[Rfam]
RNA: Eukaryotic large subunit ribosomal RNA, nucleotides 1871 to 2357
Organism: Plenodomus tracheiphilus
RNA sequence: UAGAAUAAUAUAGAUAAGAGAAGUUAGUAAAAUAGAUCUAGAACUUUAGAAAAUGGAUUAGCUUUAAGAGUUAAGUAUAUUAGGCCUUAAGGACAAGCCUCUAGUAUAGAAGAGUACUAGCUAUAAGGUAAGUACUAUUUAGUACUAGAGUAUAGAUACCCUUAGUAGGCUUAAUCUAUCUAGCAUAUAUUUAAUAACUAACUUAGAACUAGUAUAGAUAAGAGGAAUCUAACUAUUUAAUUAAAACAUAGUAGUAUAAUAGCUAGAAAGUAAUAUUAAUAUAAUAUAAUUUCUGCCUAGUGCUCUAAAUAUUAAAGUAAAGAGAUUUAACUAUGUAUAGGUAAAUAGUAGGAGUAACUAUAACUCUCUUAAGGUAGCUAAAUACUUUAUUAUUUAAUUAGUAAUAUAUAUAAAUAGAUUAAUAAGAUUCCUACUAUCUCUAUUAACUAUCUAGUAAAACUAUAGCUAAAGGAAUAGGCUUAGCUAA
Numbered sequence: 001u002a003g004a005a006u007a008a009u010a011u012a013g014a015u016a017a018g019a020g021a022a023g024u025u026a027g028u029a030a031a032a033u034a035g036a037u038c039u040a041g042a043a044c045u046u047u048a049g050a051a052a053a054u055g056g057a058u059u060a061g062c063u064u065u066a067a068g069a070g071u072u073a074a075g076u077a078u079a080u081u082a083g084g085c086c087u088u089a090a091g092g093a094c095a096a097g098c099c100u101c102u103a104g105u106a107u108a109g110a111a112g113a114g115u116a117c118u119a120g121c122u123a124u125a126a127g128g129u130a131a132g133u134a135c136u137a138u139u140u141a142g143u144a145c146u147a148g149a150g151u152a153u154a155g156a157u158a159c160c161c162u163u164a165g166u167a168g169g170c171u172u173a174a175u176c177u178a179u180c181u182a183g184c185a186u187a188u189a190u191u192u193a194a195u196a197a198c199u200a201a202c203u204u205a206g207a208a209c210u211a212g213u214a215u216a217g218a219u220a221a222g223a224g225g226a227a228u229c230u231a232a233c234u235a236u237u238u239a240a241u242u243a244a245a246a247c248a249u250a251g252u253a254g255u256a257u258a259a260u261a262g263c264u265a266g267a268a269a270g271u272a273a274u275a276u277u278a279a280u281a282u283a284a285u286a287u288a289a290u291u292u293c294u295g296c297c298u299a300g301u302g303c304u305c306u307a308a309a310u311a312u313u314a315a316a317g318u319a320a321a322g323a324g325a326u327u328u329a330a331c332u333a334u335g336u337a338u339a340g341g342u343a344a345a346u347a348g349u350a351g352g353a354g355u356a357a358c359u360a361u362a363a364c365u366c367u368c369u370u371a372a373g374g375u376a377g378c379u380a381a382a383u384a385c386u387u388u389a390u391u392a393u394u395u396a397a398u399u400a401g402u403a404a405u406a407u408a409u410a411u412a413a414a415u416a417g418a419u420u421a422a423u424a425a426g427a428u429u430c431c432u433a434c435u436a437u438c439u440c441u442a443u444u445a446a447c448u449a450u451c452u453a454g455u456a457a458a459a460c461u462a463u464a465g466c467u468a469a470a471g472g473a474a475u476a477g478g479c480u481u482a483g484c485u486a487a
Stems, first nucleotide, its partner, number of pairs: 001453004011446001013444004018439001020437001035059005044049001060210002063207006069199005075188004080183004084170003088164004099150009109140003113136006120129003211215001223432007230424002234248001236246001251287003255283004262274001264272002291418002295349002300346002302342003307338001310337003318329004351367005369373001389405006466483004